The family of this 57-nucleotide RNA is "chrB-b RNA". By type it is a cis-regulatory element. The base pairs follow the family's consensus structure, which is taken from published work. Rfam's curators put it in the seed alignment.
[Rfam]
RNA sequence: CCGGGUCAACCGGCAGGCACCCGGUCCAUUCAGGACGGCCUCCGUCUCAAGCACUGC
Numbered sequence: 001c002c003g004g005g006u007c008a009a010c011c012g013g014c015a016g017g018c019a020c021c022c023g024g025u026c027c028a029u030u031c032a033g034g035a036c037g038g039c040c041u042c043c044g045u046c047u048c049a050a051g052c053a054c055u056g057c
Stems, first nucleotide, its partner, number of pairs: 001024006013057004034046005